[Rfam]
RNA sequence: UAUGCCUCUGGAAUAACUGAAUGGUGAAAUAAAUAACUUUUUAGUUCAGAAGAAGGCAAAUAUCAAGUGUCAAACCUUAAAGAUGUUUGAGGGCAAGUAAUGCUCUUCUUUUAGCUCCUUACUUUGAUAUUUUCGAAUAUCCAUUUCU
Numbered sequence: 001u002a003u004g005c006c007u008c009u010g011g012a013a014u015a016a017c018u019g020a021a022u023g024g025u026g027a028a029a030u031a032a033a034u035a036a037c038u039u040u041u042u043a044g045u046u047c048a049g050a051a052g053a054a055g056g057c058a059a060a061u062a063u064c065a066a067g068u069g070u071c072a073a074a075c076c077u078u079a080a081a082g083a084u085g086u087u088u089g090a091g092g093g094c095a096a097g098u099a100a101u102g103c104u105c106u107u108c109u110u111u112u113a114g115c116u117c118c119u120u121a122c123u124u125u126g127a128u129a130u131u132u133u134c135g136a137a138u139a140u141c142c143a144u145u146u147c148u
Base pairs, nucleotide, nucleotide: 003058004057005056006055007054009053015046016045017044018043019042020041021040024037025036079145080120081119082118085115086114087113089112093109095107096106097105126141127140128139129138130137

The record is a 148-nucleotide RNA from Arachis hypogaea, which matches "Small nucleolar RNA snoR138" in Rfam. The match comes from Rfam's covariance-model search (45 bits). The base pairs follow the family's consensus structure, which was predicted with mfold. The family's RNA type in Rfam is H/ACA-box small nucleolar RNA. Lineage of the source: Eukaryota > Streptophyta > Tracheophyta > Papilionoideae > Arachis. The family has 7 seed sequences and 308 matches in Rfam 15.1. On this family, see Chen and Wu, Nucleic Acids Res 2009: "Mining small RNA sequencing data: a new approach to identify small nucleolar RNAs in Arabidopsis".